The record is a 40-nucleotide RNA sequence from Shouchella lonarensis, which matches "Ribosomal protein L19 leader" in Rfam. The family's consensus secondary structure was predicted with CMfinder. It scores 36 bits against the family's covariance model. On this family, see Zengel and Lindahl, Prog Nucleic Acid Res Mol Biol 1994: "Diverse mechanisms for regulating ribosomal protein synthesis in Escherichia coli". Rfam describes the family as follows. This family is a putative r-protein leader autoregulatory structure found in B. subtilis and other low-GC Gram-positive bacteria. It is located in the 5' untranslated regions of mRNAs encoding ribosomal protein L19 (rplS).

[Rfam]
RNA sequence: ACGAUGUUCCGCUGCCAGAUAGUGUCGGCAAGAAUGUCUG
Numbered sequence: 001a002c003g004a005u006g007u008u009c010c011g012c013u014g015c016c017a018g019a020u021a022g023u024g025u026c027g028g029c030a031a032g033a034a035u036g037u038c039u040g
Stems, first nucleotide, its partner, number of pairs: 003038007013030002015027001017025001